[Rfam]
RNA sequence: UGUGGUUAAAGGUGUUUGCAUCCAGCAGCCUUCUCCUGGUGGGAUGCUCAAAAAGCAGUGGUACACCAGUGCAGCAUUUGGCAUCCUUGGUUUUCAGUCCGCUGUGCCUGUUAAACCUCGUAUUUUUGCUCAAACAGUC
Numbered sequence: 001u002g003u004g005g006u007u008a009a010a011g012g013u014g015u016u017u018g019c020a021u022c023c024a025g026c027a028g029c030c031u032u033c034u035c036c037u038g039g040u041g042g043g044a045u046g047c048u049c050a051a052a053a054a055g056c057a058g059u060g061g062u063a064c065a066c067c068a069g070u071g072c073a074g075c076a077u078u079u080g081g082c083a084u085c086c087u088u089g090g091u092u093u094u095c096a097g098u099c100c101g102c103u104g105u106g107c108c109u110g111u112u113a114a115a116c117c118u119c120g121u122a123u124u125u126u127u128g129c130u131c132a133a134a135c136a137g138u139c
Stems, first nucleotide, its partner, number of pairs: 001060003005056001015054003018047006024040001026038003064128002068124003073118002080108005
RNA: Small nucleolar RNA SNORA8
Organism: Emberiza fucata